[Rfam]
RNA sequence: UUGAGGCUCCAUCUACAAAUGGAUAAUUCUUUAGCGUUAGUCUAGACCUAGUUUAGUAAUAGUAAAAAACGAGCAAUAUAAGCCUUCUUUAAAAUUUUAAAGAAGGCUUAUAUUGCUCAUU
Numbered sequence: 001u002u003g004a005g006g007c008u009c010c011a012u013c014u015a016c017a018a019a020u021g022g023a024u025a026a027u028u029c030u031u032u033a034g035c036g037u038u039a040g041u042c043u044a045g046a047c048c049u050a051g052u053u054u055a056g057u058a059a060u061a062g063u064a065a066a067a068a069a070c071g072a073g074c075a076a077u078a079u080a081a082g083c084c085u086u087c088u089u090u091a092a093a094a095u096u097u098u099a100a101a102g103a104a105g106g107c108u109u110a111u112a113u114u115g116c117u118c119a120u121u
Stems, first nucleotide, its partner, number of pairs: 008023005068121002071118009085106001088103003
RNA: Plastid-psbA-1 3UTR RNA
Organism: Bunias erucago